[Rfam]
RNA sequence: UGCAAUAGAAUGGCUUUGUGGGUGGUCGGCUAAUCUCCCGUAAGGGAGGUGAUGCCAGUGUGUGUAUAUAAAGCGCUAUCCGUAAUUCGGAAUAUGGAGAAUCGCGUUAUUGAUUUUUGUCGUGACGCUGCUGAUAUACCUGCACACAAAGAAAUAGACCGCCCUCGCGAAAAGGUUAGCGGUCUAUUUCCAACACCAUAAAAGCCAGCGCCUUUGAAGCGGCUAUUGCACUGGAGUCGUGUUCGAGCACGGCUC
Numbered sequence: 001u002g003c004a005a006u007a008g009a010a011u012g013g014c015u016u017u018g019u020g021g022g023u024g025g026u027c028g029g030c031u032a033a034u035c036u037c038c039c040g041u042a043a044g045g046g047a048g049g050u051g052a053u054g055c056c057a058g059u060g061u062g063u064g065u066a067u068a069u070a071a072a073g074c075g076c077u078a079u080c081c082g083u084a085a086u087u088c089g090g091a092a093u094a095u096g097g098a099g100a101a102u103c104g105c106g107u108u109a110u111u112g113a114u115u116u117u118u119g120u121c122g123u124g125a126c127g128c129u130g131c132u133g134a135u136a137u138a139c140c141u142g143c144a145c146a147c148a149a150a151g152a153a154a155u156a157g158a159c160c161g162c163c164c165u166c167g168c169g170a171a172a173a174g175g176u177u178a179g180c181g182g183u184c185u186a187u188u189u190c191c192a193a194c195a196c197c198a199u200a201a202a203a204g205c206c207a208g209c210g211c212c213u214u215u216g217a218a219g220c221g222g223c224u225a226u227u228g229c230a231c232u233g234g235a236g237u238c239g240u241g242u243u244c245g246a247g248c249a250c251g252g253c254u255c
Base pairs, nucleotide, nucleotide: 001230002229003228004227005226007224008223011207012206013205014204015203016202020164021163022162024159026157031052033050035048036047037046038045039044060143061142062141064139065138066137073107074106075105117134118133119132174191175190209221210220211219234255235254236253237252238251239250240249241248242247
The record is a 255-nucleotide RNA sequence from Paenibacillus dendritiformis, which matches "BsrG" in Rfam.
It scores 55 bits against the family's covariance model.
bsrE, bsrG and bsrH pair through intermolecular interactions with antisense sRNAs. They form type I toxin/antitoxin system that includes an mRNA encoding for a short, toxic peptide (bsrE, bsrG and bsrH) and an antitoxin that is comprised of an antisense RNA. bsrG encodes a 39-amino-acid toxin, and the 180 nucleotide antisense sRNA called SR4 acts as the antitoxin (they overlap by 123 nucleotides). SR4 interaction with the 3'UTR of bsrG RNA promotes bsrG degradation and inhibits its translation. BsrG interferes with cell envelope biosynthesis, causes membrane invaginations and delocalisation of the cell wall synthesis and initiates autolysis. bsrE RNA encodes 30 amino-acid toxin peptide.
A reference for the family is Jahn et al. (2012), "BsrG/SR4 from Bacillus subtilis--the first temperature-dependent type I toxin-antitoxin system", Mol Microbiol.
Rfam classes the family as a small RNA.
NCBI's taxonomy places the organism under Bacteria, Bacillati, Bacilli, Paenibacillus, Paenibacillus dendritiformis.